[Rfam]
RNA sequence: CGCAAAGUGAUGAGCUAGACUUUGUCUGAAGUUAUUAUGUCGAUGACAAAUAUAUUAUUGCCUUCAAAGUUCUCUGAUUGCU
Dot-bracket structure: .((((........................................................................)))).
Numbered sequence: 001c002g003c004a005a006a007g008u009g010a011u012g013a014g015c016u017a018g019a020c021u022u023u024g025u026c027u028g029a030a031g032u033u034a035u036u037a038u039g040u041c042g043a044u045g046a047c048a049a050a051u052a053u054a055u056u057a058u059u060g061c062c063u064u065c066a067a068a069g070u071u072c073u074c075u076g077a078u079u080g081c082u
Stems, first nucleotide, its partner, number of pairs: 002081004
The family of this 82-nucleotide RNA sequence from Asparagus officinalis is "Small nucleolar RNA R160". The match comes from Rfam's covariance-model search (56 bits). Gene Ontology terms of the family: RNA processing and nucleolus. Taxonomically the source falls in Asparagus (Eukaryota, Tracheophyta, Mesangiospermae, Asparagales). From the family's description: snoR160 is a C/D box small nucleolar RNA, which acts as a methylation guide for 25S ribosomal RNA in plants. snoR160 has been alternatively named snoZ270 in rice.